[Rfam]
Overview: A member of the RNA family "Pseudomonas sRNA CrcZ" from Halopseudomonas xinjiangensis, 379 nucleotides long. The base pairs follow the family's consensus structure, which was predicted with WAR. The organism belongs to Halopseudomonas, within Bacteria.
RNA sequence: ACAACAACAAUAAAAACCAAGAAACGAAUAACAAAAAUAAUAUCGGCUUCACACACAAUAAAAAUAAAACCGUGCAAGCGUAGCAAACUGAUUUUUUUGGAGAAUGGGUCGACAGUCGGACAGCAAUGUUCGCGGACAUGAAUAAGAAUAAAAGUUGCCAAAGCAACCCGACGCGUCCGAGCUCACAAGGCACUGCCUGAUACCUAAGCUUCCAAAGCAAUCCGUUUGUUGUUGAAAACCCGGGAUGGGUCGAUACAGGCGACAUUGUCGCCUUGCCUAACAACAACAAUAGCUCGACAGAGAACAACAAUAAAAAACAACGCCAUUAGGGGGAGUAACUACUCCCCUUGAGCUUUCCCCCUCCUUUAUUACAAUUUCC
Number, nucleotide and partner (000 for none) at each position: 001a000002c000003a000004a000005c000006a000007a000008c000009a000010a000011u000012a000013a000014a000015a000016a000017c000018c000019a000020a000021g000022a000023a000024a000025c000026g000027a000028a000029u000030a000031a000032c000033a000034a000035a000036a000037a000038u000039a000040a000041u000042a000043u000044c080045g079046g000047c000048u077049u076050c000051a000052c000053a000054c000055a000056c000057a000058a000059u000060a000061a000062a000063a000064a000065u000066a000067a000068a000069a000070c000071c000072g000073u000074g000075c000076a049077a048078g000079c045080g044081u000082a000083g000084c000085a000086a000087a000088c000089u000090g000091a000092u000093u000094u000095u217096u216097u215098u214099g213100g000101a000102g000103a000104a000105u000106g000107g210108g209109u208110c000111g000112a000113c000114a000115g000116u000117c000118g000119g000120a000121c000122a000123g000124c000125a000126a000127u000128g000129u000130u000131c000132g000133c179134g178135g177136a176137c175138a000139u173140g000141a000142a000143u000144a000145a000146g000147a000148a000149u000150a000151a000152a000153a000154g167155u166156u165157g164158c163159c000160a000161a000162a000163g158164c157165a156166a155167c154168c000169c000170g000171a000172c000173g139174c000175g137176u136177c135178c134179g133180a000181g000182c000183u000184c000185a000186c000187a000188a000189g000190g000191c000192a000193c000194u000195g000196c000197c000198u000199g000200a000201u000202a000203c000204c000205u000206a000207a000208g109209c108210u107211u000212c000213c099214a098215a097216a096217g095218c000219a000220a000221u000222c000223c000224g000225u000226u000227u000228g000229u000230u000231g000232u000233u000234g000235a250236a000237a000238a000239c249240c248241c000242g000243g000244g000245a000246u000247g000248g240249g239250u235251c000252g000253a000254u000255a000256c000257a000258g000259g000260c000261g000262a000263c000264a000265u000266u000267g000268u000269c000270g361271c000272c000273u000274u000275g000276c000277c000278u000279a000280a000281c000282a000283a000284c000285a000286a000287c000288a000289a000290u000291a000292g000293c000294u000295c000296g000297a000298c000299a000300g000301a000302g000303a000304a000305c000306a000307a000308c000309a000310a000311u000312a000313a356314a355315a354316a000317a000318c000319a000320a000321c000322g000323c000324c000325a000326u000327u000328a000329g348330g347331g346332g345333g344334a343335g342336u341337a000338a000339c000340u000341a336342c335343u334344c333345c332346c331347c330348u329349u000350g000351a000352g000353c000354u315355u314356u313357c000358c000359c000360c000361c270362u000363c000364c000365u000366u000367u000368a000369u000370u000371a000372c000373a000374a000375u000376u000377u000378c000379c000